[Rfam]
Notes:
The record is an 84-nucleotide RNA from Lysinibacillus telephonicus, which matches "ctRNA" in Rfam. Rolling circle replication plasmids contain a number of mechanisms to maintain a low copy number. One of these methods is to transcribe a small RNA called ctRNA (for counter-transcribed RNA) than is transcribed on the opposite strand to RepB the replication initiation protein. ctRNA binds to the mRNA of repB and causes translational inhibition. Gene Ontology terms of the family: plasmid copy number maintenance and mRNA binding. For this family Rfam cites "Involvement of antisense RNA in replication control of the lactococcal plasmid pND324" (Duan et al., FEMS Microbiol Lett, 1998).
RNA sequence: AAGAAAAUAGCUCCUAUUUACUUGAGCUGUUUUCUAGGAGUAUAGAAAAGUCAAUUUUGACUUUUCUAUACUUUUUUUCUAUAA
Numbered sequence: 001a002a003g004a005a006a007a008u009a010g011c012u013c014c015u016a017u018u019u020a021c022u023u024g025a026g027c028u029g030u031u032u033u034c035u036a037g038g039a040g041u042a043u044a045g046a047a048a049a050g051u052c053a054a055u056u057u058u059g060a061c062u063u064u065u066c067u068a069u070a071c072u073u074u075u076u077u078u079c080u081a082u083a084a
Stems, first nucleotide, its partner, number of pairs: 004033010038073013

It scores 47 bits against the family's covariance model.